[Rfam]
RNA sequence: UGCCAAAGGAAGUAUAGUAAUGUGCACAUAAAUUGAUUUGGAUCUCUUGGCUUGCCCUCUUUGAUGCCAUUUGACUUUGAUUUGGGGGCAUGGUUCCGCAGCAAAACA
Numbered sequence: 001u002g003c004c005a006a007a008g009g010a011a012g013u014a015u016a017g018u019a020a021u022g023u024g025c026a027c028a029u030a031a032a033u034u035g036a037u038u039u040g041g042a043u044c045u046c047u048u049g050g051c052u053u054g055c056c057c058u059c060u061u062u063g064a065u066g067c068c069a070u071u072u073g074a075c076u077u078u079g080a081u082u083u084g085g086g087g088g089c090a091u092g093g094u095u096c097c098g099c100a101g102c103a104a105a106a107c108a
Stems, first nucleotide, its partner, number of pairs: 012025004040091001043088002050081001052079001054075001056073001
A member of the RNA family "Small nucleolar RNA snoR100" from Rhododendron simsii, 108 nucleotides long. The base pairs follow the family's consensus structure, which was predicted with WAR. On this family, see Marker et al., Curr Biol 2002: "Experimental RNomics: identification of 140 candidates for small non-messenger RNAs in the plant Arabidopsis thaliana". It scores 62 bits against the family's covariance model.